[Rfam]
RNA: Glycine riboswitch aptamer
RNA sequence: UGACGGAGCUCUGGAGAGACGAUUCCGCACCGAAGAAGCAAGGCCGCGCGGCCAAUCUUUCAGGUAAAAGGACAGAGUACACACC
Numbered sequence: 001u002g003a004c005g006g007a008g009c010u011c012u013g014g015a016g017a018g019a020c021g022a023u024u025c026c027g028c029a030c031c032g033a034a035g036a037a038g039c040a041a042g043g044c045c046g047c048g049c050g051g052c053c054a055a056u057c058u059u060u061c062a063g064g065u066a067a068a069a070g071g072a073c074a075g076a077g078u079a080c081a082c083a084c085c
Base pairs, nucleotide, nucleotide: 006080008078009077010076011075012074013073020027021026029065030064031063032061033060036059037058038057042052